RNA: RT-2 RNA
RNA sequence: GGGAGUACGGAGUACCCUCGGUAAAACGAGGGCCUUGAUGCGGCUGGCCGGACGCUUCUUGCAUGGCCGGGGAUAGCGAUAGGAGGUGAACGAAAGACCUUCCGUUCGUUGGAAACGUUCACCGAGUACCCGGUUUCAUGGCCAUUGCCGCUAUGGAGUUUACAACGCGCUCCAACAAUAACGCUCUACGAGGUGUCUAUCCCAUUAUGACAAGCG
Dot-bracket structure: (((............)))............(((((((.(((((((((((....((.....))..(((((((.........................................................)))))))....)))))..)))))...(((((.(...................).)))))))))))).)....................